ZMP/ZTP riboswitch aptamer (pfl RNA motif): an 82-nucleotide RNA from Modestobacter italicus. Gene Ontology terms of the family: regulation of purine nucleotide biosynthetic process and one-carbon metabolic process. NCBI's taxonomy places the organism under Bacteria, Actinomycetota, Geodermatophilales, Geodermatophilaceae, Modestobacter. It scores 48 bits against the family's covariance model.

RNA sequence: ACCGCGGGCCGUGACUGGCGCUGACAGGUGGGCCACCACCGGGGAGCGGCUCCGUCGACCGCCGCGCGCCUGGGCUCCCGUC
Numbered sequence: 001a002c003c004g005c006g007g008g009c010c011g012u013g014a015c016u017g018g019c020g021c022u023g024a025c026a027g028g029u030g031g032g033c034c035a036c037c038a039c040c041g042g043g044g045a046g047c048g049g050c051u052c053c054g055u056c057g058a059c060c061g062c063c064g065c066g067c068g069c070c071u072g073g074g075c076u077c078c079c080g081u082c
Stems, first nucleotide, its partner, number of pairs: 003054002006052007015043002017070005028039004061075003